[Rfam]
RNA sequence: CUACAGGAUGGUCAUUUCAGGUGCCGAAGACCUAUUUGGGUAUGCUAGUCGGUUCGAUAUGUGCACUAAUGGGUGUAUUAACAAUUGCCUUACCGGUUCCUGUUAUUGUUUCAAAU
Numbered sequence: 001c002u003a004c005a006g007g008a009u010g011g012u013c014a015u016u017u018c019a020g021g022u023g024c025c026g027a028a029g030a031c032c033u034a035u036u037u038g039g040g041u042a043u044g045c046u047a048g049u050c051g052g053u054u055c056g057a058u059a060u061g062u063g064c065a066c067u068a069a070u071g072g073g074u075g076u077a078u079u080a081a082c083a084a085u086u087g088c089c090u091u092a093c094c095g096g097u098u099c100c101u102g103u104u105a106u107u108g109u110u111u112c113a114a115a116u
Stems, first nucleotide, its partner, number of pairs: 002115001007110005014103002021099001023097002039079004052064002

A member of the RNA family "Potassium channel RNA editing signal" from Necator americanus, 116 nucleotides long.
Rfam classes the family as a cis-regulatory element.
A search with the family's covariance model found it, with a score of 59 bits.
The base pairs follow the family's consensus structure, which is taken from published work.
The organism belongs to Necator, within Eukaryota.
The literature on the family includes a 2004 paper in Nat Struct Mol Biol by Bhalla et al., "Control of human potassium channel inactivation by editing of a small mRNA hairpin".
This family represents a group of sequences related to the human potassium channel Kv1.1 hairpin element which directs the efficient modification of an adenosine to inosine by an adenosine deaminase acting on RNA (ADAR). The ADAR modification causes an isoleucine/valine recoding event which lies in the ion-conducting pore of the potassium channel.